[Rfam]
This 259-nucleotide part of an RNA from Natronomonas pharaonis belongs to the Rfam family "Archaeal large subunit ribosomal RNA". Rfam's curators put it in the seed alignment.
RNA sequence: GAGUGUAUUUGUUUGGCGAGUCUAACCCGUUCAUCGGGGAAGGCGUAGGGAAACCGACAUGGCCGCAGCAUUGCCAGGGCCGCCGUGUUCAAGCGCGGGGAGUCAAACGGAUACGACCCGAAACCGGGUGAUCUAUGCGUGGACAGGACGAAGCGUGGCGAAAGCUACGUGGAGGUCCGUUAGAGUUGGUGUCCUACAAUACCCUCUCGUGAUCUACGUAUAGGGGUGAAAGGCCCAUCGAACCCGGAAACAGCUGGUU
Numbered sequence: 001g002a003g004u005g006u007a008u009u010u011g012u013u014u015g016g017c018g019a020g021u022c023u024a025a026c027c028c029g030u031u032c033a034u035c036g037g038g039g040a041a042g043g044c045g046u047a048g049g050g051a052a053a054c055c056g057a058c059a060u061g062g063c064c065g066c067a068g069c070a071u072u073g074c075c076a077g078g079g080c081c082g083c084c085g086u087g088u089u090c091a092a093g094c095g096c097g098g099g100g101a102g103u104c105a106a107a108c109g110g111a112u113a114c115g116a117c118c119c120g121a122a123a124c125c126g127g128g129u130g131a132u133c134u135a136u137g138c139g140u141g142g143a144c145a146g147g148a149c150g151a152a153g154c155g156u157g158g159c160g161a162a163a164g165c166u167a168c169g170u171g172g173a174g175g176u177c178c179g180u181u182a183g184a185g186u187u188g189g190u191g192u193c194c195u196a197c198a199a200u201a202c203c204c205u206c207u208c209g210u211g212a213u214c215u216a217c218g219u220a221u222a223g224g225g226g227u228g229a230a231a232g233g234c235c236c237a238u239c240g241a242a243c244c245c246g247g248a249a250a251c252a253g254c255u256g257g258u259u
Base pairs, nucleotide, nucleotide: 005114006113007112008111009110010109011108012107013106014105015104016103017102020044021043022042023041026038027037028036029035048055049054061081062080063079064078068074069073084097085096086095087094117257118256120254124247125246126245127244128243129242133223134222135221136220137219138218139217140216141215142214143213144211146178147177148176149175153170154169155168156167157166158165159164183208184207185206188204189203191202192201225235226234227233
Source information:
NCBI's taxonomy places the organism under Archaea, Methanobacteriati, Methanobacteriota, Natronomonadaceae, Natronomonas pharaonis. The base pairs follow the family's consensus structure, which is taken from published work.